[Rfam]
RNA sequence: AUUUGUUGUAAAGCGCCAGGACUGCAGGAAACGGAAAGCACUGCAGUUGACGAGGUGGAGGAAUAUCGAGAACAGAUCGGCGGAUACCUCCCGGUUUUGCGUCAGAACCGCGGAACCACAGUACAAACCGGCAGGGUGACUUGCUGAACAAAGACUGUGGUAUGACGCUUG
Numbered sequence: 001a002u003u004u005g006u007u008g009u010a011a012a013g014c015g016c017c018a019g020g021a022c023u024g025c026a027g028g029a030a031a032c033g034g035a036a037a038g039c040a041c042u043g044c045a046g047u048u049g050a051c052g053a054g055g056u057g058g059a060g061g062a063a064u065a066u067c068g069a070g071a072a073c074a075g076a077u078c079g080g081c082g083g084a085u086a087c088c089u090c091c092c093g094g095u096u097u098u099g100c101g102u103c104a105g106a107a108c109c110g111c112g113g114a115a116c117c118a119c120a121g122u123a124c125a126a127a128c129c130g131g132c133a134g135g136g137u138g139a140c141u142u143g144c145u146g147a148a149c150a151a152a153g154a155c156u157g158u159g160g161u162a163u164g165a166c167g168c169u170u171g
Stems, first nucleotide, its partner, number of pairs: 020048008057091005066080004092110006115161007129146007
The family of this 171-nucleotide RNA sequence from Paenactinomyces guangxiensis is "glmS glucosamine-6-phosphate activated ribozyme aptamer".
The match comes from Rfam's covariance-model search (110 bits).
On this family, see Winkler et al., Nature 2004: "Control of gene expression by a natural metabolite-responsive ribozyme".
Lineage of the source: Bacteria > Bacillota > Caryophanales > Thermoactinomycetaceae > Paenactinomyces.